[Rfam]
Rfam assigns this 160-nucleotide RNA sequence from Pantoea ananatis to the family "Glm Y RNA activator of glmS mRNA". Rfam classes the family as a small RNA. This family consists of a number of bacterial RNA genes of around 167 bases in length. The tke1 RNA gene is present in Escherichia coli, Shigella flexneri, Yersinia pestis and Salmonella species where it is found between the yfhK and purL genes. The function of this RNA is unknown. Pairs were carried over by alignment from the consensus structure, which is taken from published work.
RNA sequence: UGUUGCUCAUUCAUCUGUUUAUGAUUGCCACCCCACAGCGGGCAGAGCUCAUAAAAUCCGAAUGACGCACCAAACGGAGCCUGUCGUCCACCCAACCGAUAAUCGUAUGUUCUGCAUCGUUAUCAAGCAUCGGACGCAACGUUGAGUUAGGCUCCACCCA
Numbered sequence: 001u002g003u004u005g006c007u008c009a010u011u012c013a014u015c016u017g018u019u020u021a022u023g024a025u026u027g028c029c030a031c032c033c034c035a036c037a038g039c040g041g042g043c044a045g046a047g048c049u050c051a052u053a054a055a056a057u058c059c060g061a062a063u064g065a066c067g068c069a070c071c072a073a074a075c076g077g078a079g080c081c082u083g084u085c086g087u088c089c090a091c092c093c094a095a096c097c098g099a100u101a102a103u104c105g106u107a108u109g110u111u112c113u114g115c116a117u118c119g120u121u122a123u124c125a126a127g128c129a130u131c132g133g134a135c136g137c138a139a140c141g142u143u144g145a146g147u148u149a150g151g152c153u154c155c156a157c158c159c160a
Stems, first nucleotide, its partner, number of pairs: 005068002007065006019054006027048002076155007085136005098124005138148003